[Rfam]
RNA sequence: CCGCCGCCGCAGCUCAGCCGGAGUUGCGGACGAGGGGCCCUUGGGGUGAAGCCGUGAUCACGCGGCCGGGCAUCUUCGCCAGUCCGAACCCGACAGGUCAUCCUUCGCAGGCGGUUGACGAAGGGUUG
Numbered sequence: 001c002c003g004c005c006g007c008c009g010c011a012g013c014u015c016a017g018c019c020g021g022a023g024u025u026g027c028g029g030a031c032g033a034g035g036g037g038c039c040c041u042u043g044g045g046g047u048g049a050a051g052c053c054g055u056g057a058u059c060a061c062g063c064g065g066c067c068g069g070g071c072a073u074c075u076u077c078g079c080c081a082g083u084c085c086g087a088a089c090c091c092g093a094c095a096g097g098u099c100a101u102c103c104u105u106c107g108c109a110g111g112c113g114g115u116u117g118a119c120g121a122a123g124g125g126u127u128g
Base pairs, nucleotide, nucleotide: 005113006112007111008110013028031107032106033105034104035103044091045090046089052065053064054063055062068085069084070083071082
The family of this 128-nucleotide sequence from Streptomyces xanthii is "c-di-AMP riboswitch aptamer (ydaO/yuaA leader)".
Pairs were carried over by alignment from the consensus structure.
Rfam links the family to the GO terms regulation of gene expression and cyclic-di-AMP binding.